[Rfam]
Archaeal large subunit ribosomal RNA: a 552-nucleotide part of an RNA from Candidatus Syntropharchaeum butanivorans. It scores 2967 bits against the family's covariance model. Rfam links the family to the GO terms ribosome and structural constituent of ribosome. Lineage of the source: Archaea > Methanobacteriati > Candidatus Syntropharchaeia > Candidatus Syntropharchaeales > Candidatus Syntropharchaeum.
RNA sequence: UAACUAUACCAUCUGGUGGAUGGCUCGGCUCAAGCGCUGAUGAAGGACGUGCUAAGCUGCGAUAAGCCCCGGCGAGGUGCAUGGAACCUUAGACCCGGGGAUCUCCGAAUGGGACAUCCUGAUGCGAAAGCAUCAAUCCGUAAGGAUUGGGAACGCCCUGGAUUGAAACAUCUUAGUAAGGGCAGGAAGAGAAACCAAGAGGGAUACCGUGAGUAACGGCGAGUGAAAGCGGCAGAGUCCAAACCGAAUCCUUCUGUGAAAGCAGGAGGAGAUGUGGGGUUGUAAGAUAUGCCAUCUGCAUCCCUCCCUGAUGAAGUUGAAGUCCUCUGGAAAGGGGCGCCAUAGAGUGUGAUAGCCACGUAAACAUAAAUCAGCGGGAUGUGGCAUAUACUUGAGUACCGUGGGUUGGAAUUCCCGCGGGAAGCUGGGAGACACCAACUUCCAAGACUAAACACAGCUUGAGACCGAUAGCGCAAUAGUAGGGUGACCAAAAGCUGAAAAGUACCCCAGGAAGGGAGGUGCAAAGUGUCUGAAAUCAGAUGGUGAUGGUGC
Numbered sequence: 001u002a003a004c005u006a007u008a009c010c011a012u013c014u015g016g017u018g019g020a021u022g023g024c025u026c027g028g029c030u031c032a033a034g035c036g037c038u039g040a041u042g043a044a045g046g047a048c049g050u051g052c053u054a055a056g057c058u059g060c061g062a063u064a065a066g067c068c069c070c071g072g073c074g075a076g077g078u079g080c081a082u083g084g085a086a087c088c089u090u091a092g093a094c095c096c097g098g099g100g101a102u103c104u105c106c107g108a109a110u111g112g113g114a115c116a117u118c119c120u121g122a123u124g125c126g127a128a129a130g131c132a133u134c135a136a137u138c139c140g141u142a143a144g145g146a147u148u149g150g151g152a153a154c155g156c157c158c159u160g161g162a163u164u165g166a167a168a169c170a171u172c173u174u175a176g177u178a179a180g181g182g183c184a185g186g187a188a189g190a191g192a193a194a195c196c197a198a199g200a201g202g203g204a205u206a207c208c209g210u211g212a213g214u215a216a217c218g219g220c221g222a223g224u225g226a227a228a229g230c231g232g233c234a235g236a237g238u239c240c241a242a243a244c245c246g247a248a249u250c251c252u253u254c255u256g257u258g259a260a261a262g263c264a265g266g267a268g269g270a271g272a273u274g275u276g277g278g279g280u281u282g283u284a285a286g287a288u289a290u291g292c293c294a295u296c297u298g299c300a301u302c303c304c305u306c307c308c309u310g311a312u313g314a315a316g317u318u319g320a321a322g323u324c325c326u327c328u329g330g331a332a333a334g335g336g337g338c339g340c341c342a343u344a345g346a347g348u349g350u351g352a353u354a355g356c357c358a359c360g361u362a363a364a365c366a367u368a369a370a371u372c373a374g375c376g377g378g379a380u381g382u383g384g385c386a387u388a389u390a391c392u393u394g395a396g397u398a399c400c401g402u403g404g405g406u407u408g409g410a411a412u413u414c415c416c417g418c419g420g421g422a423a424g425c426u427g428g429g430a431g432a433c434a435c436c437a438a439c440u441u442c443c444a445a446g447a448c449u450a451a452a453c454a455c456a457g458c459u460u461g462a463g464a465c466c467g468a469u470a471g472c473g474c475a476a477u478a479g480u481a482g483g484g485u486g487a488c489c490a491a492a493a494g495c496u497g498a499a500a501a502g503u504a505c506c507c508c509a510g511g512a513a514g515g516g517a518g519g520u521g522c523a524a525a526g527u528g529u530c531u532g533a534a535a536u537c538a539g540a541u542g543g544u545g546a547u548g549g550u551g552c
Base pairs, nucleotide, nucleotide: 007545008544009543010542011541012540013539014538015537016536022530023495024494027466028465029463030462031461032460033459034458036455045106046105047104048061049060050059067100068099069098070097071096072095076088077087078086111120112119113118136147137146138145139144154185155183156182157181158180159179165172166171195202196201207232208231209230210229216224217223236449237448238447239446244277245276246275254265255264256263257262289387290386291385292384300380301379302378303377316365317364318363322338324337325336326335327334341345347359348358349357399420400419401418402417403416404415405414427443428442429441430440431439482489483488